RNA sequence: CCUGCGAUAGGACGGAAAGACCCCGUGAACCUUUACUGUAACCUGGCAUUGAACUUUGGUCCUGUAUGUGUAGGAUAGGUGGGAGGCUAUGAAAUCUGGACGCCAGUCUGGAUGGAGCCGUCGUUGAAAUACCACCCUUACUUGACCCAAGUUCUAACCGAAUGAAACAACAUUCGAGACAAUGUCAGGCGGGCAGUUUGACUGGGGCGGUCGCCUCCUAAAGAGUAACGGAGGCGCCCAAAGGUUCCCUCAGCGCGGACGGAAAUCGCGCCAAGAGUGUAAAGGCAUAAGGGAGCUUAACUGUGAGACAGACAAGUCGAGCAGGUACGAAAGUAGGGCUUAGUGAUCCGGUGGUUCUGUGUGGAAGGGCCAUCGCUCAACGGAUAAAAGGUACUCCGGGGAUAACAGGCUGAUCGCGUCCAAGAGUCCAUAUCGACGACGCGGUUUGGCACCUCGAUGUCGGCUCGUCGCAUCCUGGGGCUGAAGCAGGUCCCAAGGGUAUGGCUGUUCGCCAUUUAAAGCGGUACGCGAGCUGGGUUCAGAACGUCGUGAGACAGUUCGGUCCCUAUCCAUCGCAGGCGUU
Numbered sequence: 001c002c003u004g005c006g007a008u009a010g011g012a013c014g015g016a017a018a019g020a021c022c023c024c025g026u027g028a029a030c031c032u033u034u035a036c037u038g039u040a041a042c043c044u045g046g047c048a049u050u051g052a053a054c055u056u057u058g059g060u061c062c063u064g065u066a067u068g069u070g071u072a073g074g075a076u077a078g079g080u081g082g083g084a085g086g087c088u089a090u091g092a093a094a095u096c097u098g099g100a101c102g103c104c105a106g107u108c109u110g111g112a113u114g115g116a117g118c119c120g121u122c123g124u125u126g127a128a129a130u131a132c133c134a135c136c137c138u139u140a141c142u143u144g145a146c147c148c149a150a151g152u153u154c155u156a157a158c159c160g161a162a163u164g165a166a167a168c169a170a171c172a173u174u175c176g177a178g179a180c181a182a183u184g185u186c187a188g189g190c191g192g193g194c195a196g197u198u199u200g201a202c203u204g205g206g207g208c209g210g211u212c213g214c215c216u217c218c219u220a221a222a223g224a225g226u227a228a229c230g231g232a233g234g235c236g237c238c239c240a241a242a243g244g245u246u247c248c249c250u251c252a253g254c255g256c257g258g259a260c261g262g263a264a265a266u267c268g269c270g271c272c273a274a275g276a277g278u279g280u281a282a283a284g285g286c287a288u289a290a291g292g293g294a295g296c297u298u299a300a301c302u303g304u305g306a307g308a309c310a311g312a313c314a315a316g317u318c319g320a321g322c323a324g325g326u327a328c329g330a331a332a333g334u335a336g337g338g339c340u341u342a343g344u345g346a347u348c349c350g351g352u353g354g355u356u357c358u359g360u361g362u363g364g365a366a367g368g369g370c371c372a373u374c375g376c377u378c379a380a381c382g383g384a385u386a387a388a389a390g391g392u393a394c395u396c397c398g399g400g401g402a403u404a405a406c407a408g409g410c411u412g413a414u415c416g417c418g419u420c421c422a423a424g425a426g427u428c429c430a431u432a433u434c435g436a437c438g439a440c441g442c443g444g445u446u447u448g449g450c451a452c453c454u455c456g457a458u459g460u461c462g463g464c465u466c467g468u469c470g471c472a473u474c475c476u477g478g479g480g481c482u483g484a485a486g487c488a489g490g491u492c493c494c495a496a497g498g499g500u501a502u503g504g505c506u507g508u509u510c511g512c513c514a515u516u517u518a519a520a521g522c523g524g525u526a527c528g529c530g531a532g533c534u535g536g537g538u539u540c541a542g543a544a545c546g547u548c549g550u551g552a553g554a555c556a557g558u559u560c561g562g563u564c565c566c567u568a569u570c571c572a573u574c575g576c577a578g579g580c581g582u583u
Stems, first nucleotide, its partner, number of pairs: 001579008010571003014566002022400004027396002029392005035197004042189007051154006058147004064141003068137001078136005085119003094113008159176006200212004213235006236381001238338002244296006250276002253271006277286002301324004307318003326335003349375007357368002409450003413447001414444007424434002461536001462534004466528001467525005474499002477494006501515005542560004546555003
RNA: Bacterial large subunit ribosomal RNA, nucleotides 2104 to 2686
Organism: Leptospira interrogans